[Rfam]
RNA sequence: GUCAUACUACGGUGCAUCGCACCGGAAAGUAAACGAUGACCCAUAAGGAACUUCCGGGUAAAAUGCGUAUCAAAUUGAAAAAUUGCUGCUGACCUGGAGCUUUGUCUCCGGGUCGGUUUUCUUU
Numbered sequence: 001g002u003c004a005u006a007c008u009a010c011g012g013u014g015c016a017u018c019g020c021a022c023c024g025g026a027a028a029g030u031a032a033a034c035g036a037u038g039a040c041c042c043a044u045a046a047g048g049a050a051c052u053u054c055c056g057g058g059u060a061a062a063a064u065g066c067g068u069a070u071c072a073a074a075u076u077g078a079a080a081a082a083u084u085g086c087u088g089c090u091g092a093c094c095u096g097g098a099g100c101u102u103u104g105u106c107u108c109c110g111g112g113u114c115g116g117u118u119u120u121c122u123u124u
Stems, first nucleotide, its partner, number of pairs: 001040005010035002014030002041048002057071004088117011
Dot-bracket structure: (((((....((..((.............))...)))))))((....))........((((.......))))................(((((((((((........))))))))))).......
Overview
Shown here is a 124-nucleotide sequence from Pseudescherichia vulneris, a member of the family "Enterobacteria greA leader". The family's consensus secondary structure is taken from published work. It scores 130 bits against the family's covariance model. By type it is a cis-regulatory leader. On this family, see Naville and Gautheret, Genome Biol 2010: "Premature terminator analysis sheds light on a hidden world of bacterial transcriptional attenuation".